[Rfam]
RNA sequence: CGACUGUAGCGGUCAUAAGGUUAAGACGAGCCCACGCUCCUCGAUUUCCGCCUCCAAAGUAUCAAUCUAACGAUUGAAGCUGCCAACAGUGCCCAGUCCGAACACUGCGGGGACAAGCCACUCGUGCGGGAAACUCACGAUGCUGCGCUUGUCUUGAGCAAUGAAGAUAACUUCUUGAGGGAGGCCUCACUCUGCAGAGAGAUCUUCACCAUGGUGUGGCGGUAUUGGAUUACAUUCGUUGUGUGGUUUGGAGAGGGCAUCCAGGUUGGGCUUCAACUUUUUUU
Numbered sequence: 001c002g003a004c005u006g007u008a009g010c011g012g013u014c015a016u017a018a019g020g021u022u023a024a025g026a027c028g029a030g031c032c033c034a035c036g037c038u039c040c041u042c043g044a045u046u047u048c049c050g051c052c053u054c055c056a057a058a059g060u061a062u063c064a065a066u067c068u069a070a071c072g073a074u075u076g077a078a079g080c081u082g083c084c085a086a087c088a089g090u091g092c093c094c095a096g097u098c099c100g101a102a103c104a105c106u107g108c109g110g111g112g113a114c115a116a117g118c119c120a121c122u123c124g125u126g127c128g129g130g131a132a133a134c135u136c137a138c139g140a141u142g143c144u145g146c147g148c149u150u151g152u153c154u155u156g157a158g159c160a161a162u163g164a165a166g167a168u169a170a171c172u173u174c175u176u177g178a179g180g181g182a183g184g185c186c187u188c189a190c191u192c193u194g195c196a197g198a199g200a201g202a203u204c205u206u207c208a209c210c211a212u213g214g215u216g217u218g219g220c221g222g223u224a225u226u227g228g229a230u231u232a233c234a235u236u237c238g239u240u241g242u243g244u245g246g247u248u249u250g251g252a253g254a255g256g257g258c259a260u261c262c263a264g265g266u267u268g269g270g271c272u273u274c275a276a277c278u279u280u281u282u283u284u
Stems, first nucleotide, its partner, number of pairs: 002014003018282003028273007039265003043261003049257001051253001053251002056248001062077006081245002084241004089235003093228005098222003102217006109210002112153001114151005119142001122140005128135002154158001162208007172201005181192003
RNA: Fungal signal recognition particle RNA
Organism: Monilinia vaccinii-corymbosi